Pseudomonas sRNA P26: a 66-nucleotide RNA from Serratia proteamaculans.
Rfam's curators write: This small RNA (sRNA) was computationally identified in the genome of the opportunistic pathogen Pseudomonas aeruginosa and its expression verified by northern blot analysis. P26 is conserved across many Gammaproteobacteria species and appears to be consistently located between the DNA directed RNA polymerase (beta subunit) and 50S ribosomal protein L7/L12 genes.
NCBI's taxonomy places the organism under Bacteria, Pseudomonadati, Yersiniaceae, Serratia, Serratia proteamaculans.
For this family Rfam cites "Identification of 17 Pseudomonas aeruginosa sRNAs and prediction of sRNA-encoding genes in 10 diverse pathogens using the bioinformatic tool sRNAPredict2" (Livny et al., Nucleic Acids Res, 2006).
By type it is a non-coding RNA gene.
[Rfam]
RNA sequence: UGCUUUCUGAGUGCAGUCUGUUUUAACUAACAGACUGAUGGCUGGUGACUUUUUGGUCACCAGCCU
Numbered sequence: 001u002g003c004u005u006u007c008u009g010a011g012u013g014c015a016g017u018c019u020g021u022u023u024u025a026a027c028u029a030a031c032a033g034a035c036u037g038a039u040g041g042c043u044g045g046u047g048a049c050u051u052u053u054u055g056g057u058c059a060c061c062a063g064c065c066u
Base pairs, nucleotide, nucleotide: 014037015036016035017034018033022030023029040065041064042063043062044061045060046059047058048057049056